[Rfam]
RNA sequence: UCAUAAAGCAUUGCACUCAGAGUCUGUUUUAGCAGACAUUGCAUCUGGAGCUUUUUCUUUUUACAAUAAAUGUUCU
Numbered sequence: 001u002c003a004u005a006a007a008g009c010a011u012u013g014c015a016c017u018c019a020g021a022g023u024c025u026g027u028u029u030u031a032g033c034a035g036a037c038a039u040u041g042c043a044u045c046u047g048g049a050g051c052u053u054u055u056u057c058u059u060u061u062u063a064c065a066a067u068a069a070a071u072g073u074u075c076u
Stems, first nucleotide, its partner, number of pairs: 005054005017048004022037005
RNA: U1A polyadenylation inhibition element (PIE)
Organism: Gouania willdenowi